[Rfam]
RNA sequence: GAAUGGCAAGGGUGAUGAAUCAAUUAGAUGUCUGAGACGGAUUUUUCUGUUUCUGAAUGUUAAAAACCUGAGGCAUAUUUUUCCCUGACUUGUCAUUC
Numbered sequence: 001g002a003a004u005g006g007c008a009a010g011g012g013u014g015a016u017g018a019a020u021c022a023a024u025u026a027g028a029u030g031u032c033u034g035a036g037a038c039g040g041a042u043u044u045u046u047c048u049g050u051u052u053c054u055g056a057a058u059g060u061u062a063a064a065a066a067c068c069u070g071a072g073g074c075a076u077a078u079u080u081u082u083c084c085c086u087g088a089c090u091u092g093u094c095a096u097u098c
Base pairs, nucleotide, nucleotide: 001098002097003096004095005094006093007092008091009090010089
Shown here is a 98-nucleotide sequence from Taxus chinensis, a member of the family "Small nucleolar RNA Z266". Pairs were carried over by alignment from the consensus structure, which was predicted with PFOLD. For this family Rfam cites "The high diversity of snoRNAs in plants: identification and comparative study of 120 snoRNA genes from Oryza sativa" (Chen et al., Nucleic Acids Res, 2003).